[Rfam]
Rfam assigns this 72-nucleotide sequence to the family "Twister_sister_ribozyme". It is one of the family's seed sequences. Rfam links the family to the GO term catalytic activity. For this family Rfam cites "New classes of self-cleaving ribozymes revealed by comparative genomics analysis" (Weinberg et al., Nat Chem Biol, 2015). Pairs were carried over by alignment from the consensus structure, which is taken from published work.

RNA sequence: AAAAGGCCCAAGGCCCAGCCCCGUGAAAGCCGGGGCCGCCCCUUCGGGGGCGCGGCGCUUACAGCCACAAAC
Dot-bracket structure: ....(((.....((([.(.(((......]..))).)((((((....)))))).))).......)))......
Numbered sequence: 001a002a003a004a005g006g007c008c009c010a011a012g013g014c015c016c017a018g019c020c021c022c023g024u025g026a027a028a029g030c031c032g033g034g035g036c037c038g039c040c041c042c043u044u045c046g047g048g049g050g051c052g053c054g055g056c057g058c059u060u061a062c063a064g065c066c067a068c069a070a071a072c
Stems, first nucleotide, its partner, number of pairs: 005066003013056003016029001018036001020034003037052006